Annotation: A member of the RNA family "PyrR binding site" from Lentibacillus halodurans, 105 nucleotides long. The source organism's lineage runs through Bacteria, Bacillati, Bacillota, Bacillaceae and Lentibacillus. Rfam describes the family as follows. This family represents the PyrR binding site and terminator structure. This RNA structure is found upstream of a variety of genes involved in pyrimidine biosynthesis and transport. The alignment also includes a portion of the antiterminator structure.

[Rfam]
RNA sequence: AGGACCUUUAAUUAGAUCCAGAGAGAUUUAAAAGGUCGCCUUAGAAAACGUGUAUUCACAGGACACGUGUACCUCUUUGCGGCCUUUUGCAAAGAGGUUUUUUAA
Number, nucleotide and partner (000 for none) at each position: 001a000002g000003g037004a036005c035006c034007u033008u032009u031010a000011a000012u000013u030014a029015g028016a027017u026018c025019c000020a000021g000022a000023g000024a000025g018026a017027u016028u015029u014030a013031a009032a008033a007034g006035g005036u004037c003038g000039c000040c000041u000042u000043a000044g000045a000046a000047a000048a068049c067050g066051u065052g064053u063054a000055u061056u000057c000058a000059c000060a000061g055062g000063a053064c052065a051066c050067g049068u048069g100070u000071a098072c097073c096074u095075c094076u093077u092078u091079g090080c089081g088082g087083c000084c000085u000086u000087u082088u081089g080090c079091a078092a077093a076094g075095a074096g073097g072098u071099u000100u069101u000102u000103u000104a000105a000